The record is an 83-nucleotide sequence from Antrostomus carolinensis, which matches "Small nucleolar RNA SNORD45" in Rfam. The source organism's lineage runs through Eukaryota, Metazoa, Amniota, Dinosauria and Antrostomus.

RNA sequence: GGUCUGUGAUGGCUCUUGGCAUGUAUUACCUGAGCAUAAAUGUGGAGAUGGUCACUUGAGCUCUUGAAUUACUCUGAGACCCG
Numbered sequence: 001g002g003u004c005u006g007u008g009a010u011g012g013c014u015c016u017u018g019g020c021a022u023g024u025a026u027u028a029c030c031u032g033a034g035c036a037u038a039a040a041u042g043u044g045g046a047g048a049u050g051g052u053c054a055c056u057u058g059a060g061c062u063c064u065u066g067a068a069u070u071a072c073u074c075u076g077a078g079a080c081c082c083g
Stems, first nucleotide, its partner, number of pairs: 001081004